[Rfam]
RNA sequence: GGCCGGGGGAGGCCGUAGUCCGGAGCCGGGGAACCAUGUUCCUGGGGUUAAUCGCUCACCGCACGGACGCAGUCCGGUCCGCGCGCGCGACGGGUUUCUUUGCCGCCCGCACCCGUCAGCUAACCCGGUAGGCGUCAGACAAAGAGGAG
Number, nucleotide and partner (000 for none) at each position: 001g000002g000003c023004c022005g021006g020007g019008g000009g000010a000011g000012g000013c000014c000015g000016u000017a000018g000019u007020c006021c005022g004023g003024a000025g129026c128027c127028g126029g125030g124031g000032a000033a000034c000035c044036a043037u000038g000039u000040u000041c000042c000043u036044g035045g114046g113047g112048u000049u000050a000051a000052u000053c089054g088055c087056u000057c000058a000059c000060c000061g000062c000063a000064c000065g000066g000067a000068c000069g000070c000071a000072g000073u000074c000075c000076g000077g000078u000079c000080c000081g000082c000083g000084c000085g000086c000087g055088c054089g053090a000091c000092g108093g107094g106095u105096u000097u000098c000099u000100u000101u000102g000103c000104c000105g095106c094107c093108c092109g000110c000111a000112c047113c046114c045115g000116u000117c000118a000119g000120c000121u000122a000123a000124c030125c029126c028127g027128g026129u025130a000131g000132g000133c000134g000135u000136c000137a000138g000139a000140c000141a000142a000143a000144g000145a000146g000147g000148a000149g000

Shown here is a 149-nucleotide RNA from Nocardioides panacis, a member of the family "c-di-AMP riboswitch aptamer (ydaO/yuaA leader)". The match comes from Rfam's covariance-model search (64 bits).